[Rfam]
RNA: SAM riboswitch aptamer (S box leader)
Organism: Bacillus sp. V59.32b
RNA sequence: AACUUAUCAAGAGCGGCGGAGGGAAUUGGCCCAGUGAUGUCCGGCAACCUGCAGAUCAUGCAAGGUGCUAAAUCCAACAAAAUGGAAGUCAUUUUGGAAGAUAAGGU
Numbered sequence: 001a002a003c004u005u006a007u008c009a010a011g012a013g014c015g016g017c018g019g020a021g022g023g024a025a026u027u028g029g030c031c032c033a034g035u036g037a038u039g040u041c042c043g044g045c046a047a048c049c050u051g052c053a054g055a056u057c058a059u060g061c062a063a064g065g066u067g068c069u070a071a072a073u074c075c076a077a078c079a080a081a082a083u084g085g086a087a088g089u090c091a092u093u094u095u096g097g098a099a100g101a102u103a104a105g106g107u
Base pairs, nucleotide, nucleotide: 001107003105004104005103006102007101008100013042015041016040017039021032022031023030026077027076028075029074043069044068045067046066048065049064050062051061052060053059073099078096079095080094081093082092083091